[Rfam]
RNA sequence: UCAGGAUCAGUGAUGUUAGUUUUUACUGCGUUAUCUAUCUGAAGAACUGUAAUAAGGAUUUGAGGUGACAAUUACUUGCUGAGGUCCUGC
Number, nucleotide and partner (000 for none) at each position: 001u000002c089003a088004g087005g086006a085007u084008c000009a000010g000011u000012g000013a000014u000015g000016u000017u000018a000019g000020u000021u000022u000023u000024u000025a000026c000027u000028g000029c000030g000031u000032u000033a000034u000035c000036u000037a000038u000039c000040u000041g000042a000043a000044g000045a000046a000047c000048u000049g000050u000051a000052a000053u000054a000055a000056g000057g000058a000059u000060u000061u000062g000063a000064g000065g000066u000067g000068a000069c000070a000071a000072u000073u000074a000075c000076u000077u000078g000079c000080u000081g000082a000083g000084g007085u006086c005087c004088u003089g002090c000
This 90-nucleotide sequence from Macleaya cordata belongs to the Rfam family "Small nucleolar RNA snoR27".
For this family Rfam cites "Multiple snoRNA gene clusters from Arabidopsis" (Brown et al., RNA, 2001).
Gene Ontology terms of the family: nucleolus and RNA processing.
The family has 6 seed sequences and 649 matches in Rfam 15.1.